[Rfam]
RNA sequence: GAGGAUGUGAUGAUCCUUUCCCCAGAUGAUCGACAAUGAACAUGCUGAGCACUAUUAUUUCUCUUCAGAGAAACCAAGCCAAUGCUCUGGUCCUC
Numbered sequence: 001g002a003g004g005a006u007g008u009g010a011u012g013a014u015c016c017u018u019u020c021c022c023c024a025g026a027u028g029a030u031c032g033a034c035a036a037u038g039a040a041c042a043u044g045c046u047g048a049g050c051a052c053u054a055u056u057a058u059u060u061c062u063c064u065u066c067a068g069a070g071a072a073a074c075c076a077a078g079c080c081a082a083u084g085c086u087c088u089g090g091u092c093c094u095c
Stems, first nucleotide, its partner, number of pairs: 001095005

This 95-nucleotide RNA from Triticum aestivum belongs to the Rfam family "Small nucleolar RNA Z103". The organism belongs to Triticum, within Eukaryota. For this family Rfam cites "The high diversity of snoRNAs in plants: identification and comparative study of 120 snoRNA genes from Oryza sativa" (Chen et al., Nucleic Acids Res, 2003). The family's RNA type in Rfam is C/D-box small nucleolar RNA. The match comes from Rfam's covariance-model search (94 bits).